[Rfam]
RNA sequence: ACUGCCACAGAAGCAUUACAGAUGUGGCUGGUAUGUCACGUGUGUCAUUAGAUGGUAGAGGAGAGAUGUGUCUCCACCCAGUGUUCUGACCUGUGAACACCUGGACGACUGAUAAUCUGACACA
Numbered sequence: 001a002c003u004g005c006c007a008c009a010g011a012a013g014c015a016u017u018a019c020a021g022a023u024g025u026g027g028c029u030g031g032u033a034u035g036u037c038a039c040g041u042g043u044g045u046c047a048u049u050a051g052a053u054g055g056u057a058g059a060g061g062a063g064a065g066a067u068g069u070g071u072c073u074c075c076a077c078c079c080a081g082u083g084u085u086c087u088g089a090c091c092u093g094u095g096a097a098c099a100c101c102u103g104g105a106c107g108a109c110u111g112a113u114a115a116u117c118u119g120a121c122a123c124a
Stems, first nucleotide, its partner, number of pairs: 002058005008051001010049002013046001018045003023040006061121001064118003067114003075107001078104004082099005
Record summary: A member of the RNA family "Small nucleolar RNA SNORA17" from Erinaceus europaeus, 124 nucleotides long. Rfam classes the family as an H/ACA-box small nucleolar RNA. Its Rfam clan is "SNORA17 clan". For this family Rfam cites "Mapping to nucleotide resolution of pseudouridine residues in large subunit ribosomal RNAs from representative eukaryotes, prokaryotes, archaebacteria, mitochondria and chloroplasts" (Ofengand and Bakin, J Mol Biol, 1997). It scores 75 bits against the family's covariance model. Rfam's curators write: snoRNA ACA 17 belongs to the H/ACA family of snoRNAs and is predicted to guide pseudouridylation of the 28S rRNA at positions U4659 and U4598. Pairs were carried over by alignment from the consensus structure, which was predicted with RNAalifold.